[Rfam]
RNA sequence: CCCCCGGGUCCCUGAUGCUGCCCCCCGGAUGAGCUUGCGAUAUUUUCUUUAUAUGAUUGUGUCCCGUGGCUGGCCGCGCGGCUUGCCUGGAGCCUGAGAGGAUUAUGACGUGUCAGGCAAAGUGGGGCCAGGGGACCCGGGG
Numbered sequence: 001c002c003c004c005c006g007g008g009u010c011c012c013u014g015a016u017g018c019u020g021c022c023c024c025c026c027g028g029a030u031g032a033g034c035u036u037g038c039g040a041u042a043u044u045u046u047c048u049u050u051a052u053a054u055g056a057u058u059g060u061g062u063c064c065c066g067u068g069g070c071u072g073g074c075c076g077c078g079c080g081g082c083u084u085g086c087c088u089g090g091a092g093c094c095u096g097a098g099a100g101g102a103u104u105a106u107g108a109c110g111u112g113u114c115a116g117g118c119a120a121a122g123u124g125g126g127g128c129c130a131g132g133g134g135a136c137c138c139g140g141g142g
Stems, first nucleotide, its partner, number of pairs: 001142003005139009020128005057097003061093002064090002069086002072083004
RNA: small Cajal body-specific RNA 17
Organism: Hipposideros armiger